[Rfam]
Shown here is an 80-nucleotide RNA sequence from Trichonephila clavipes, a member of the family "mir-9/mir-79 microRNA precursor family". Taxonomically the source falls in Trichonephila (Eukaryota, Panarthropoda, Chelicerata, Orbiculariae).
RNA sequence: ACUAGUUAUGCUUAGGUUUUAUAGCUCUAUUUGUAUAUAUAUAUACACAAAUAGAGCUAUAAAACCUAAGCAUAACUAGU
Numbered sequence: 001a002c003u004a005g006u007u008a009u010g011c012u013u014a015g016g017u018u019u020u021a022u023a024g025c026u027c028u029a030u031u032u033g034u035a036u037a038u039a040u041a042u043a044u045a046c047a048c049a050a051a052u053a054g055a056g057c058u059a060u061a062a063a064a065c066c067u068a069a070g071c072a073u074a075a076c077u078a079g080u
Base pairs, nucleotide, nucleotide: 001080002079003078004077005076007074008073009072010071011070012069013068014067015066016065017064018063019062020061021060022059023058024057025056026055028053029052030051031050032049033048
Rfam links the family to the GO terms miRNA-mediated post-transcriptional gene silencing and RISC complex.